[Rfam]
mir-34 microRNA precursor family: a 72-nucleotide RNA sequence from Pararge aegeria.
RNA sequence: UCCGCACUGGCAGUGUGGUUAGCUGGUUGUUUAGUGCACCACAACAGCCAGUAACGGCACUGCCCCUGCGUA
Dot-bracket structure: ..((((..((.(((((.((((..((((((((...........)))))))).)))).))))).))..))))..
On this family, see Lim et al., Science 2003: "Vertebrate microRNA genes". About the family: Human mir-34a was discovered computationally and later experimentally verified. The mature sequence is excised from the 5' arm of the hairpin. Its family is annotated with miRNA-mediated post-transcriptional gene silencing and RISC complex in the Gene Ontology.